The family of this 132-nucleotide RNA from Flexivirga oryzae is "ALIL pseudoknot".
Its family is annotated with positive regulation of translational frameshifting in the Gene Ontology.
The family's consensus secondary structure is taken from published work.
NCBI's taxonomy places the organism under Bacteria, Bacillati, Actinomycetota, Actinomycetes, Flexivirga.
A search with the family's covariance model found it, with a score of 65 bits.
RNA sequence: GGCUUUCUUCGCGGCGGAGUUCGACCGCCCAUCCAGGUAGUCGUCGCGUUCAUCGACGAGCACCGGCACCGCUGGGGUGUCGAACCGAUCUGCCGCGUCCUUUCCACCGAACUGGACGUCAAGAUCGCCCCC
Numbered sequence: 001g002g003c004u005u006u007c008u009u010c011g012c013g014g015c016g017g018a019g020u021u022c023g024a025c026c027g028c029c030c031a032u033c034c035a036g037g038u039a040g041u042c043g044u045c046g047c048g049u050u051c052a053u054c055g056a057c058g059a060g061c062a063c064c065g066g067c068a069c070c071g072c073u074g075g076g077g078u079g080u081c082g083a084a085c086c087g088a089u090c091u092g093c094c095g096c097g098u099c100c101u102u103u104c105c106a107c108c109g110a111a112c113u114g115g116a117c118g119u120c121a122a123g124a125u126c127g128c129c130c131c132c
Stems, first nucleotide, its partner, number of pairs: 013029005075132003079128001086127002089124003